A member of the RNA family "Group II catalytic intron D1-D4-1", 81 nucleotides long. Its family is annotated with Group II intron splicing in the Gene Ontology. Rfam's curators put it in the seed alignment. A reference for the family is Bonen and Vogel (2001), "The ins and outs of group II introns", Trends Genet.
[Rfam]
RNA sequence: CGCGGCGGAUCGAGAGGUCCGCCGUGUGAGCCCAGAAGUCAGCCGAGGGCAUAGUAGCUCCGAGACCAUGGAGCGAAGGCC
Number, nucleotide and partner (000 for none) at each position: 001c026002g025003c000004g023005g022006c021007g020008g019009a018010u017011c016012g000013a000014g000015a000016g011017g010018u009019c008020c007021g006022c005023c004024g000025u002026g001027u000028g000029a000030g000031c000032c000033c000034a000035g000036a000037a000038g000039u046040c045041a000042g000043c000044c000045g040046a039047g000048g081049g080050c079051a000052u000053a000054g000055u000056a000057g074058c073059u072060c071061c070062g069063a000064g000065a000066c000067c000068a000069u062070g061071g060072a059073g058074c057075g000076a000077a000078g000079g050080c049081c048